This 116-nucleotide sequence from Gelria sp. Kuro-4 belongs to the Rfam family "Molybdenum/Tungsten riboswitch aptamer (Moco RNA motif)". Lineage of the source: Bacteria > Bacillota > Thermoanaerobacterales > Thermoanaerobacteraceae > Gelria.

RNA sequence: AAAUUCGAUAAGCUCCGAGUCCCAAGGCCUACGGUGAAGCUAAGGCCCGGGACCGUUAGGGUGGGUUGGGAAACCGGCCCGCCUCCCUCAUGGAAAGGAGCGCACGGGGAGCCACC
Number, nucleotide and partner (000 for none) at each position: 001a000002a000003a000004u109005u000006c107007g000008a000009u000010a000011a000012g101013c100014u099015c098016c097017g000018a000019g053020u052021c051022c050023c049024a000025a000026g047027g046028c045029c044030u000031a000032c000033g041034g040035u039036g000037a000038a000039g035040c034041u033042a000043a000044g029045g028046c027047c026048c000049g023050g022051g021052a020053c019054c000055g000056u000057u000058a000059g084060g083061g082062u081063g080064g079065g078066u077067u076068g075069g074070g000071a000072a000073a000074c069075c068076g067077g066078c065079c064080c063081g062082c061083c060084u059085c093086c092087c000088u000089c000090a000091u000092g086093g085094a000095a000096a000097g016098g015099a014100g013101c012102g000103c000104a000105c000106g000107g006108g000109g004110a000111g000112c000113c000114a000115c000116c000